[Rfam]
RNA: Archaeal large subunit ribosomal RNA, nucleotides 2664 to 2914
Organism: Salinarchaeum sp. Harcht-Bsk1
RNA sequence: UGGUGUCUGACGGGAACGAUCGUAUAGUACGAGAGGAACUACGAUCGGUUGCCACUGGUGUACCGGUCGUCCGACAGGGCGAGUGCCGGGCAGCUACGCAACACGGGGUAAGGGCUGAACGCAUCUAAGCCCGAAACCCACCUGGAAAAGAGACACCGUUGAGAUCUCCCGUAUAAUACGGGGUCGAUAGAGACGGGGUGUACGCGCCGAGGCAACGAGGCGUUGAGCCCGCGUCCACUAACAGAUCGAAG
Numbered sequence: 001u002g003g004u005g006u007c008u009g010a011c012g013g014g015a016a017c018g019a020u021c022g023u024a025u026a027g028u029a030c031g032a033g034a035g036g037a038a039c040u041a042c043g044a045u046c047g048g049u050u051g052c053c054a055c056u057g058g059u060g061u062a063c064c065g066g067u068c069g070u071c072c073g074a075c076a077g078g079g080c081g082a083g084u085g086c087c088g089g090g091c092a093g094c095u096a097c098g099c100a101a102c103a104c105g106g107g108g109u110a111a112g113g114g115c116u117g118a119a120c121g122c123a124u125c126u127a128a129g130c131c132c133g134a135a136a137c138c139c140a141c142c143u144g145g146a147a148a149a150g151a152g153a154c155a156c157c158g159u160u161g162a163g164a165u166c167u168c169c170c171g172u173a174u175a176a177u178a179c180g181g182g183g184u185c186g187a188u189a190g191a192g193a194c195g196g197g198g199u200g201u202a203c204g205c206g207c208c209g210a211g212g213c214a215a216c217g218a219g220g221c222g223u224u225g226a227g228c229c230c231g232c233g234u235c236c237a238c239u240a241a242c243a244g245a246u247c248g249a250a251g
Base pairs, nucleotide, nucleotide: 001158002157003156004155005154006153007152008151011144012143013142014141017047018046019045020044021043022042023041024040048102049101050100051099052098056096057095058094063089064088065087066086067085068081069080070079071078072077105139106138107137112132113131114130115129116128163247164246165245166244167183168182169181170180171179188240189239190238192235193234194233195232196230197229198228204223205222206221207220208219211216